[Rfam]
RNA sequence: UCUGUCCUAUACCAUGAGUUUUCAUGCCUAACUUUGAUCGUCCAUCUUAUUUAAAUUUUUUUCAUAAUUGAUAUUUUUAUAGUUACGAAAUGAUAAAACAUGAAUAUUAUUUUAUGCAAGACUUAUGUUUUUAAUUUUUUUAAAAUAUAAUUUUAAAUAAGACGAACGAUCAAAGUUGGACACGGAAAAUUAUGACUGCACUUAAA
Number, nucleotide and partner (000 for none) at each position: 001u000002c000003u000004g000005u000006c000007c000008u000009a000010u000011a000012c000013c000014a000015u000016g000017a000018g000019u000020u000021u000022u000023c000024a000025u000026g000027c000028c179029u178030a177031a176032c175033u174034u173035u172036g171037a170038u169039c168040g167041u166042c000043c164044a000045u162046c161047u160048u159049a158050u157051u000052u000053a000054a000055a000056u000057u000058u000059u000060u000061u000062u000063c000064a000065u000066a000067a000068u000069u000070g000071a000072u000073a000074u000075u000076u000077u000078u000079a000080u000081a000082g000083u000084u000085a000086c000087g000088a000089a000090a000091u000092g000093a000094u000095a000096a000097a000098a000099c000100a000101u000102g000103a000104a000105u000106a000107u000108u000109a000110u000111u000112u000113u000114a000115u000116g000117c000118a000119a000120g000121a000122c000123u000124u000125a000126u000127g000128u000129u000130u000131u000132u000133a000134a000135u000136u000137u000138u000139u000140u000141u000142a000143a000144a000145a000146u000147a000148u000149a000150a000151u000152u000153u000154u000155a000156a000157a050158u049159a048160a047161g046162a045163c000164g043165a000166a041167c040168g039169a038170u037171c036172a035173a034174a033175g032176u031177u030178g029179g028180a000181c000182a000183c000184g000185g000186a000187a000188a000189a000190u000191u000192a000193u000194g000195a000196c000197u000198g000199c000200a000201c000202u000203u000204a000205a000206a000
A member of the RNA family "MIR812 microRNA precursor family" from Oryza rufipogon, 206 nucleotides long. The base pairs follow the family's consensus structure, which was predicted with RNAalifold. NCBI's taxonomy places the organism under Eukaryota, Mesangiospermae, commelinids, Oryzoideae, Oryza.